[Rfam]
RNA sequence: GGUGGCAUAGCUCAACGGUAGAGCGUCCGCCUUUUAAGCGGGGGAGUGCAGGUUCGAUGCCUGCUGCCACCA
Numbered sequence: 001g002g003u004g005g006c007a008u009a010g011c012u013c014a015a016c017g018g019u020a021g022a023g024c025g026u027c028c029g030c031c032u033u034u035u036a037a038g039c040g041g042g043g044g045a046g047u048g049c050a051g052g053u054u055c056g057a058u059g060c061c062u063g064c065u066g067c068c069a070c071c072a
Stems, first nucleotide, its partner, number of pairs: 001071007010024004026042005048064005
Shown here is a 72-nucleotide RNA sequence from Reticulibacter mediterranei, a member of the family "tRNA". Transfer RNA (tRNA) molecules are approximately 80 nucleotides in length. NCBI's taxonomy places the organism under Bacteria, Chloroflexota, Ktedonobacteria, Ktedonobacterales, Reticulibacter.